[Rfam]
RNA sequence: CUGAUUCUGGCAGUGUGGUUAGCUGGUUGUUGAUAUUUCAUACAACCACUAUCUUCCCUGCCUCAAGCAG
Numbered sequence: 001c002u003g004a005u006u007c008u009g010g011c012a013g014u015g016u017g018g019u020u021a022g023c024u025g026g027u028u029g030u031u032g033a034u035a036u037u038u039c040a041u042a043c044a045a046c047c048a049c050u051a052u053c054u055u056c057c058c059u060g061c062c063u064c065a066a067g068c069a070g
Base pairs, nucleotide, nucleotide: 002069003068005066006065009062010061012059013058015056017054018053020051021050022049024048025047026046027045028044029043030042
The family of this 70-nucleotide RNA from Nephila pilipes is "mir-34 microRNA precursor family".
Rfam's curators write: Human mir-34a was discovered computationally and later experimentally verified. The mature sequence is excised from the 5' arm of the hairpin.
The base pairs follow the family's consensus structure, which was predicted with RNAalifold.
The match comes from Rfam's covariance-model search (56 bits).
NCBI's taxonomy places the organism under Eukaryota, Bilateria, Araneae, Entelegynae, Nephila.